Rfam assigns this 135-nucleotide RNA from Gossypium stocksii to the family "MIR396 microRNA precursor family". The family has 26 seed sequences and 744 matches in Rfam 15.1.
[Rfam]
RNA sequence: AUUCGUAUUCUUCCACAGCUUUCUUGAACUGCAAUUUCGUGUAAUCAGAUAACCUGUUCGUUGCUGUCGUUGACGGCGCUUCACAUAUACGAGUACAUUGUUGCAGUUCAAUAAAGCUGUGGGAAGAUACAAACA
Numbered sequence: 001a002u003u004c005g006u007a008u009u010c011u012u013c014c015a016c017a018g019c020u021u022u023c024u025u026g027a028a029c030u031g032c033a034a035u036u037u038c039g040u041g042u043a044a045u046c047a048g049a050u051a052a053c054c055u056g057u058u059c060g061u062u063g064c065u066g067u068c069g070u071u072g073a074c075g076g077c078g079c080u081u082c083a084c085a086u087a088u089a090c091g092a093g094u095a096c097a098u099u100g101u102u103g104c105a106g107u108u109c110a111a112u113a114a115a116g117c118u119g120u121g122g123g124a125a126g127a128u129a130c131a132a133a134c135a
Stems, first nucleotide, its partner, number of pairs: 003132001005130003013122003017118006024111004029106007
Background:
A reference for the family is Jones-Rhoades and Bartel (2004), "Computational identification of plant microRNAs and their targets, including a stress-induced miRNA", Mol Cell. The match comes from Rfam's covariance-model search (88 bits).